[Rfam]
RNA sequence: ACUGACUGGCUCAGCGUGUGCCUACCCUAUGCUGGCAGGCACGGGUAACCCAUUGAACUCCAUUCGUGAUGGUGAUCAGGGAUUGCAAUUGUUCCCCAUGAACAAGGA
Numbered sequence: 001a002c003u004g005a006c007u008g009g010c011u012c013a014g015c016g017u018g019u020g021c022c023u024a025c026c027c028u029a030u031g032c033u034g035g036c037a038g039g040c041a042c043g044g045g046u047a048a049c050c051c052a053u054u055g056a057a058c059u060c061c062a063u064u065c066g067u068g069a070u071g072g073u074g075a076u077c078a079g080g081g082a083u084u085g086c087a088a089u090u091g092u093u094c095c096c097c098a099u100g101a102a103c104a105a106g107g108a
Stems, first nucleotide, its partner, number of pairs: 004065002007062003018050001026045002030041004072103001079096004
RNA: Eukaryotic small subunit ribosomal RNA, nucleotides 2538 to 2645
Organism: Tupaia belangeri